[Rfam]
RNA: Small nucleolar RNA SNORD83
RNA sequence: GCCAAAUGAUGUGAAACGCAUGACAUUAGCACUCGGUGCAAAGAUGACCUUCAUCUAUCACCCCAUACUGAUGGCU
Dot-bracket structure: ((((........................((((...))))................................)))).